[Rfam]
RNA sequence: CCCACUCACUCACUUACGCACGGCAGGAGCGGGGGACCCAGGUAAGCCGCCGGUCCGGGAUUCCGGAACGGCUCGGGGUGAAGUCGCAUGCCCAGUGCGGCCGGACAUCUCCCGUCCGAACCCGACAGCUCACCUCGCAGGCGACGGAGAGGAUUU
Numbered sequence: 001c002c003c004a005c006u007c008a009c010u011c012a013c014u015u016a017c018g019c020a021c022g023g024c025a026g027g028a029g030c031g032g033g034g035g036a037c038c039c040a041g042g043u044a045a046g047c048c049g050c051c052g053g054u055c056c057g058g059g060a061u062u063c064c065g066g067a068a069c070g071g072c073u074c075g076g077g078g079u080g081a082a083g084u085c086g087c088a089u090g091c092c093c094a095g096u097g098c099g100g101c102c103g104g105a106c107a108u109c110u111c112c113c114g115u116c117c118g119a120a121c122c123c124g125a126c127a128g129c130u131c132a133c134c135u136c137g138c139a140g141g142c143g144a145c146g147g148a149g150a151g152g153a154u155u156u
Stems, first nucleotide, its partner, number of pairs: 001141002006028002029138006039075001076123003084100004103117004
Record summary:
Shown here is a 156-nucleotide RNA from Streptomyces sp. NRRL S-1521, a member of the family "c-di-AMP riboswitch aptamer (ydaO/yuaA leader)". The pairing is the family consensus, mapped onto this sequence. This family represents a conserved RNA structure found upstream of the ydaO and yuaA genes in Bacillus subtilis and related genes in other bacteria. NCBI's taxonomy places the organism under Bacteria, Actinomycetota, Actinomycetes, Kitasatosporales, Streptomyces.